[Rfam]
RNA: FMN riboswitch aptamer (RFN element)
Organism: Paenibacillus macerans
RNA sequence: ACAAUCCUUCGGGGCAGGGUGAAAUUCCCUACCGACGGUGAUGGCUGAAACGGAUAGCGGCGAUUUUCGCCGGUCGGUAUUAAUCCCCUCCGUUUCAAGCACGAGUCCGUGACCCGCGAAGCGCUGAACAAGCGCAAGCGGCUGAGCCGGUGCGAUUCCGGGACCGACAGUAUAGUCUGGAUGGGAGAAGGAAAAC
Numbered sequence: 001a002c003a004a005u006c007c008u009u010c011g012g013g014g015c016a017g018g019g020u021g022a023a024a025u026u027c028c029c030u031a032c033c034g035a036c037g038g039u040g041a042u043g044g045c046u047g048a049a050a051c052g053g054a055u056a057g058c059g060g061c062g063a064u065u066u067u068c069g070c071c072g073g074u075c076g077g078u079a080u081u082a083a084u085c086c087c088c089u090c091c092g093u094u095u096c097a098a099g100c101a102c103g104a105g106u107c108c109g110u111g112a113c114c115c116g117c118g119a120a121g122c123g124c125u126g127a128a129c130a131a132g133c134g135c136a137a138g139c140g141g142c143u144g145a146g147c148c149g150g151u152g153c154g155a156u157u158c159c160g161g162g163a164c165c166g167a168c169a170g171u172a173u174a175g176u177c178u179g180g181a182u183g184g185g186a187g188a189a190g191g192a193a194a195a196c
Stems, first nucleotide, its partner, number of pairs: 005192006017029003031176002033166002035110004114141004147161004168179003